[Rfam]
RNA sequence: UCUAACCUAAGCAACGUAAACCCUACCUUCUUUUACGUCCUUGCGACCCUGUAGUCGCGCCAGUGUGAAUAAGUAUUAUCAAAAACAC
Numbered sequence: 001u002c003u004a005a006c007c008u009a010a011g012c013a014a015c016g017u018a019a020a021c022c023c024u025a026c027c028u029u030c031u032u033u034u035a036c037g038u039c040c041u042u043g044c045g046a047c048c049c050u051g052u053a054g055u056c057g058c059g060c061c062a063g064u065g066u067g068a069a070u071a072a073g074u075a076u077u078a079u080c081a082a083a084a085a086c087a088c
Base pairs, nucleotide, nucleotide: 036067037066040063041062042059043058044057045056046055047054

Record summary:
BsrC: an 88-nucleotide sequence from Psychrobacillus glaciei. A search with the family's covariance model found it, with a score of 72 bits. About the family: The 301 nucleotide sequence from Kouji Nakamura has been trimmed to a highly conserved ~85 nucleotide long core to form this family.